Record summary:
A member of the RNA family "Group I catalytic intron" from Venturia inaequalis, 373 nucleotides long. The source organism's lineage runs through Eukaryota, Opisthokonta, saccharomyceta, leotiomyceta and Venturia.
RNA sequence: AAAACUUUUUUUUUUCUAGUGUGGUGGACAAAAAAGUAAGAGAAUUGAGAAAUCUCUUAAGGCUAUUGUGGGUGUGAACCACCUGCUAUAUAUCAUCAAAUUGCGGGAAUACCCUAAAGUAAUUUCAACCAAACAAACAUGGUAACAUAGUUUGUGGCACAGGUAAUGACUCGUGGUAUGGUAAAAUCGAAAUUAAUGCACGAAAGGAAAUGGGCAAUCCGCAGCCAAGCACCCGGAAAAAAAAAGAAUUUUUUUUUUUCGCUGGGUGUGCAGUUCAUCGACUAGAUGUUGGUUGGCUUCGUGACUUUGGAUAGUCUUUUCUAUAAAAGUCACGAAGUUUAAGAUAUAGUCAAACCCUACUCGAAAGAGUACA
Numbered sequence: 001a002a003a004a005c006u007u008u009u010u011u012u013u014u015u016c017u018a019g020u021g022u023g024g025u026g027g028a029c030a031a032a033a034a035a036g037u038a039a040g041a042g043a044a045u046u047g048a049g050a051a052a053u054c055u056c057u058u059a060a061g062g063c064u065a066u067u068g069u070g071g072g073u074g075u076g077a078a079c080c081a082c083c084u085g086c087u088a089u090a091u092a093u094c095a096u097c098a099a100a101u102u103g104c105g106g107g108a109a110u111a112c113c114c115u116a117a118a119g120u121a122a123u124u125u126c127a128a129c130c131a132a133a134c135a136a137a138c139a140u141g142g143u144a145a146c147a148u149a150g151u152u153u154g155u156g157g158c159a160c161a162g163g164u165a166a167u168g169a170c171u172c173g174u175g176g177u178a179u180g181g182u183a184a185a186a187u188c189g190a191a192a193u194u195a196a197u198g199c200a201c202g203a204a205a206g207g208a209a210a211u212g213g214g215c216a217a218u219c220c221g222c223a224g225c226c227a228a229g230c231a232c233c234c235g236g237a238a239a240a241a242a243a244a245a246g247a248a249u250u251u252u253u254u255u256u257u258u259u260c261g262c263u264g265g266g267u268g269u270g271c272a273g274u275u276c277a278u279c280g281a282c283u284a285g286a287u288g289u290u291g292g293u294u295g296g297c298u299u300c301g302u303g304a305c306u307u308u309g310g311a312u313a314g315u316c317u318u319u320u321c322u323a324u325a326a327a328a329g330u331c332a333c334g335a336a337g338u339u340u341a342a343g344a345u346a347u348a349g350u351c352a353a354a355c356c357c358u359a360c361u362c363g364a365a366a367g368a369g370u371a372c373a
Base pairs, nucleotide, nucleotide: 005042006041007040008039009038011036012035013034014033015032047055092293093292094291095290097288098287102223103222104221105220106219107218112214113213114212224274225273229269230268231267232266240259241258242257243256244255245254278352280351281350282349283348284347296338297337298336299335300334301333302332303331304330358371359370360369361368362367

Background: Rfam's curators write: Group I catalytic introns are large self-splicing ribozymes. They catalyse their own excision from mRNA, tRNA and rRNA precursors in a wide range of organisms.